[Rfam]
RNA sequence: AAAUAACAGUUGCUUAAUUUCAGAUUGAAAGAAAGCGGGGGACCCAAAUUUGUGCAGACAAGCACUAGGGGUGAAUCUUAACUUAAUAGUUAAGUAGGGUAACUCACAUACCCGAAUCCGACAGCUAACCUCGUCAGCAUUUUGUGGGAGAGUAC
Dot-bracket structure: ..........((((...(((...........)))((((((....(......................)(((.....((((..........))))..((((.........))))...))).........)))))).))))................

Source information: The record is a 155-nucleotide RNA sequence from Priestia veravalensis, which matches "c-di-AMP riboswitch aptamer (ydaO/yuaA leader)" in Rfam. A search with the family's covariance model found it, with a score of 96 bits.